A member of the RNA family "Plastid-psbA-1 3UTR RNA", 126 nucleotides long. The sequence is in the family's curated seed alignment. Pairs were carried over by alignment from the consensus structure, which was predicted with LocARNA. By type it is a cis-regulatory element.
RNA sequence: UCGAAGUUCCAACAAAUGGAUAAGACUUGGCCUUAGUGUAUAGGAGUUUUUGAAAAUAAAAUAGAUAAAUCUAAGGAGCAAUAAACUCUUUCUUGUUCUAUCAAGAGGGGUUAUUGCUCCUUUAUU
Numbered sequence: 001u002c003g004a005a006g007u008u009c010c011a012a013c014a015a016a017u018g019g020a021u022a023a024g025a026c027u028u029g030g031c032c033u034u035a036g037u038g039u040a041u042a043g044g045a046g047u048u049u050u051u052g053a054a055a056a057u058a059a060a061a062u063a064g065a066u067a068a069a070u071c072u073a074a075g076g077a078g079c080a081a082u083a084a085a086c087u088c089u090u091u092c093u094u095g096u097u098c099u100a101u102c103a104a105g106a107g108g109g110g111u112u113a114u115u116g117c118u119c120c121u122u123u124a125u126u
Base pairs, nucleotide, nucleotide: 008020009019010018011017073122074121075120076119077118078117079116080115081114082113083112084111086109087108088107091106092105093104094103